[Rfam]
This 104-nucleotide sequence from Streptomyces tateyamensis belongs to the Rfam family "Glycine riboswitch aptamer".
About the family: This family represents the bacterial glycine riboswitch. Glycine riboswitches usually consist of two metabolite-binding aptamers domains with similar structures in tandem. The aptamers cooperatively bind glycine to regulate the expression of downstream genes.
Gene Ontology term of the family: glycine biosynthetic process.
RNA sequence: CGAACCCGUUCGGGAGAGUCCCCACCCCUGCUGAACAGGGAGCGGGGCGCCGAAGGAGCAAACCCUCCCCGGAAUCUCUCAGGCAUCCGUACCGUGCGGGAUAG
Numbered sequence: 001c002g003a004a005c006c007c008g009u010u011c012g013g014g015a016g017a018g019u020c021c022c023c024a025c026c027c028c029u030g031c032u033g034a035a036c037a038g039g040g041a042g043c044g045g046g047g048c049g050c051c052g053a054a055g056g057a058g059c060a061a062a063c064c065c066u067c068c069c070c071g072g073a074a075u076c077u078c079u080c081a082g083g084c085a086u087c088c089g090u091a092c093c094g095u096g097c098g099g100g101a102u103a104g
Base pairs, nucleotide, nucleotide: 006099007098008097009096011094012093013092020047021046022045023044049084050083051082052080053079056078057077058076063071
Description:
Lineage of the source: Bacteria > Bacillati > Actinomycetes > Kitasatosporales > Streptomyces. The match comes from Rfam's covariance-model search (63 bits).